Small nucleolar RNA SNORA84: a 134-nucleotide RNA from Scytalopus superciliaris. Rfam classes the family as an H/ACA-box small nucleolar RNA. Rfam links the family to the GO terms nucleolus and RNA processing. The source organism's lineage runs through Eukaryota, Sauropsida, Sauria, Archelosauria and Scytalopus. The family's consensus secondary structure was predicted with WAR. The match comes from Rfam's covariance-model search (100 bits).
RNA sequence: GCCCUGUGGUUGCUGGGCGCCGCUCUGUCCGUGCGGUGCUCCAGGGGUACGAACGGGCCGACAGUGACACUGUGGUUUACGCAUGGAGCCUGUGACCCCUGAGCAGCUUCCAUAGCCCGGCCACAGUUACACAC
Numbered sequence: 001g002c003c004c005u006g007u008g009g010u011u012g013c014u015g016g017g018c019g020c021c022g023c024u025c026u027g028u029c030c031g032u033g034c035g036g037u038g039c040u041c042c043a044g045g046g047g048u049a050c051g052a053a054c055g056g057g058c059c060g061a062c063a064g065u066g067a068c069a070c071u072g073u074g075g076u077u078u079a080c081g082c083a084u085g086g087a088g089c090c091u092g093u094g095a096c097c098c099c100u101g102a103g104c105a106g107c108u109u110c111c112a113u114a115g116c117c118c119g120g121c122c123a124c125a126g127u128u129a130c131a132c133a134c
Base pairs, nucleotide, nucleotide: 001058002057003056004055007049008048010046011045013044014043015042016041017040019037020036021035022034023033070126072124073123074122075121076120077119081116082115083113084112085111086110088108090106091105092104093103